Nucleotides: 081
Base pairs, nucleotide, nucleotide: 002080003079005077007075008074010072011071012070014068015067016066017065018064019063020062022060024058025057027055028054029053030052031051032050
Number, partner (000 for none) and nucleotide at each position: 001000c002080c003079g004000c005077g006000u007075c008074c009000g010072c011071g012070u013000g014068c015067a016066a017065g018064u019063a020062a021000c022060c023000g024058a025057g026000a027055a028054u029053a030052g031051g032050c033000c034000c035000c036000u037000u038000g039000g040000g041000a042000c043000c044000u045000g046000c047000a048000c049000a050032g051031c052030c053029u054028a055027u056000c057025c058024u059000g060022g061000a062020u063019u064018a065017c066016u067015u068014g069000a070012a071011c072010g073000a074008g075007g076000c077005c078000a079003c080002g081000g
The family of this 81-nucleotide RNA sequence from Bos taurus is "mir-26 microRNA precursor family". The base pairs follow the family's consensus structure, which was predicted with RNAalifold. Rfam's curators put it in the seed alignment. Rfam links the family to the GO terms miRNA-mediated post-transcriptional gene silencing and RISC complex.